[Rfam]
RNA sequence: GUUGAAGUCGCUGGAGGCAGCGGUUCAUCGAUCAAUUCCUGGCAUGUUUGGGGAAAUAUACACAUGGAAAGCAUGAAUCGAUCGAUAAACCUCUGCAUCCAGCGCUUAUCCU
Dot-bracket structure: ............(((..(((.((((.(((((((..(((....................................)))..))))))).)))).)))..)))............
RNA: MIR162_1 microRNA precursor family